[Rfam]
RNA: Mammalian CPEB3 ribozyme
Organism: Alligator sinensis
Nucleotides: 073
Base pairs, nucleotide, nucleotide: 013040014039015038018073019072020071021070022069024067025037026036027035045062046061047060048059049058050057
Number, partner (000 for none) and nucleotide at each position: 001000g002000g003000a004000g005000g006000c007000u008000u009000g010000u011000a012000u013040g014039c015038c016000g017000u018073a019072g020071c021070a022069g023000a024067a025037a026036c027035g028000c029000u030000c031000g032000u033000g034000g035027c036026g037025u038015g039014g040013c041000c042000u043000g044000u045062c046061g047060g048059a049058u050057u051000c052000c053000a054000a055000c056000a057050a058049a059048u060047c061046u062045g063000c064000a065000c066000a067024u068000g069022c070021u071020g072019c073018u